This 370-nucleotide RNA sequence from Thalassolituus maritimus belongs to the Rfam family "Bacterial RNase P class A". The match comes from Rfam's covariance-model search (326 bits). Rfam describes the family as follows. Ribonuclease P (RNase P) is a ubiquitous endoribonuclease, found in archaea, bacteria and eukarya as well as chloroplasts and mitochondria.
[Rfam]
Nucleotides: 370
Base pairs, nucleotide, nucleotide: 001366002365003364004363005362006361007360008359010357011355012335013334014333015332016331017330018329020039021038023036024035025034026033027032044353045352046351048350049349050348051347052346053224054223055222056221060272061271062270063269066219067218068217069216070084071083072082073081074080085099086097087096088095089094100215101214105213106212107209108208122154123153124150125149126148130145132143133142134141135140162180163179164178165177166176167175181204182202183201184200185199186198187196188195189194228292229291230290231289238283239282240281241280242279243278263277264276265275266274267273299318300317301316302315303314304313305312306311
Number, partner (000 for none) and nucleotide at each position: 001366g002365g003364a004363g005362u006361c007360g008359g009000c010357c011355a012335g013334a014333c015332a016331g017330u018329c019000g020039c021038u022000g023036c024035c025034u026033g027032c028000g029000c030000a031000a032027g033026c034025a035024g036023g037000g038021g039020g040000a041000g042000g043000a044353a045352a046351g047000u048350c049349c050348g051347g052346g053224c054223u055222u056221c057000a058000u059000a060272g061271g062270g063269c064000a065000a066219g067218g068217u069216g070084c071083c072082a073081g074080g075000u076000a077000a078000c079000g080074c081073c082072u083071g084070g085099g086097g087096g088095g089094c090000g091000u092000g093000a094089g095088c096087c097086c098000a099085c100215g101214a102000c103000c104000a105213g106212u107209g108208c109000a110000g111000c112000a113000g114000a115000g116000a117000g118000u119000a120000a121000a122154c123153c124150g125149c126148c127000g128000a129000u130145g131000g132143c133142c134141g135140c136000u137000u138000u139000u140135g141134c142133g143132g144000a145130u146000c147000a148126g149125g150124u151000a152000a153123g154122g155000g156000u157000g158000a159000a160000a161000g162180g163179g164178u165177g166176c167175g168000g169000u170000a171000a172000g173000a174000g175167c176166g177165c178164a179163c180162c181204g182202c183201g184200c185199g186198a187196c188195u189194g190000g191000u192000a193000a194189c195188a196187g197000u198186u199185c200184g201183u202182g203000g204181c205000a206000c207000g208108g209107u210000a211000a212106a213105c214101u215100c216069c217068a218067c219066c220000c221056g222055a223054a224053g225000c226000a227000a228292g229291a230290c231289c232000a233000a234000a235000u236000a237000g238283g239282u240281u241280c242279c243278c244000u245000g246000u247000u248000a249000c250000c251000c252000u253000u254000g255000a256000g257000g258000u259000a260000c261000a262000a263277g264276g265275c266274g267273u268000g269063g270062c271061c272060c273267a274266c275265g276264c277263u278243g279242g280241g281240a282239a283238c284000g285000g286000g287000u288000a289231g290230g291229u292228c293000g294000c295000u296000u297000g298000a299318g300317c301316c302315u303314g304313c305312g306311a307000g308000u309000g310000a311306u312305u313304g314303c315302a316301g317300g318299c319000c320000u321000a322000g323000a324000c325000g326000a327000a328000u329018g330017a331016c332015u333014g334013u335012u336000u337000a338000a339000c340000a341000c342000a343000g344000a345000a346052c347051c348050c349049g350048g351046c352045u353044u354000a355011u356000a357010g358000a359008c360007c361006g362005a363004c364003u365002c366001c367000a368000c369000u370000c
NCBI's taxonomy places the organism under Bacteria, Pseudomonadati, Gammaproteobacteria, Oceanospirillaceae, Thalassolituus.